[Rfam]
RNA sequence: UUUCAUAUCGGGCCUAGUUUCGUCUCCAGACGAAAACGGGGGAACCAUCUUUGGGGUUAAUUCUGUGCAAGCAGAAGGGAUGCUAACUGCCAUCCUACCCGUCAGCUAACCUCGUCGGCUAAAGCAGAAAUUUG
Numbered sequence: 001u002u003u004c005a006u007a008u009c010g011g012g013c014c015u016a017g018u019u020u021c022g023u024c025u026c027c028a029g030a031c032g033a034a035a036a037c038g039g040g041g042g043a044a045c046c047a048u049c050u051u052u053g054g055g056g057u058u059a060a061u062u063c064u065g066u067g068c069a070a071g072c073a074g075a076a077g078g079g080a081u082g083c084u085a086a087c088u089g090c091c092a093u094c095c096u097a098c099c100c101g102u103c104a105g106c107u108a109a110c111c112u113c114g115u116c117g118g119c120u121a122a123a124g125c126a127g128a129a130a131u132u133u134g
Base pairs, nucleotide, nucleotide: 011120012119013118014117018035019034020033021032022031023030036115037114038113039112040111041110046053047052054100055099056098062075063074064073065072078095079094080093081092
A member of the RNA family "c-di-AMP riboswitch aptamer (ydaO/yuaA leader)" from Brevibacillus panacihumi, 134 nucleotides long.
This family represents a conserved RNA structure found upstream of the ydaO and yuaA genes in Bacillus subtilis and related genes in other bacteria.
Gene Ontology terms of the family: regulation of gene expression and cyclic-di-AMP binding.